DUF805b RNA: a 36-nucleotide RNA from Ginsengibacter hankyongi. Rfam classes the family as a cis-regulatory element. The family is grouped with related families in Rfam's "DUF805 clan". The match comes from Rfam's covariance-model search (43 bits). The family's consensus secondary structure is taken from published work.

[Rfam]
RNA sequence: ACGGAGUAAGCCGAAAAGCCGCUUAUAGAGUAGGCA
Number, nucleotide and partner (000 for none) at each position: 001a000002c021003g020004g019005a000006g000007u000008a000009a000010g035011c034012c033013g000014a000015a000016a000017a000018g000019c004020c003021g002022c000023u000024u000025a000026u000027a000028g000029a000030g000031u000032a000033g012034g011035c010036a000